Small nucleolar RNA R38: a 91-nucleotide RNA from Brassica carinata. Pairs were carried over by alignment from the consensus structure, which was predicted with PFOLD. It is annotated as a C/D-box small nucleolar RNA. The organism belongs to Brassica, within Eukaryota.
[Rfam]
RNA sequence: GAAUGUGGAUGAUGAGAAACAAAAAUCAAAAUACAGUUAUCCCUGGCUUAGGCUUUAAAGCCGUUGCUGAUCUUUUGUGUCUGACACAUCA
Numbered sequence: 001g002a003a004u005g006u007g008g009a010u011g012a013u014g015a016g017a018a019a020c021a022a023a024a025a026u027c028a029a030a031a032u033a034c035a036g037u038u039a040u041c042c043c044u045g046g047c048u049u050a051g052g053c054u055u056u057a058a059a060g061c062c063g064u065u066g067c068u069g070a071u072c073u074u075u076u077g078u079g080u081c082u083g084a085c086a087c088a089u090c091a
Stems, first nucleotide, its partner, number of pairs: 003089005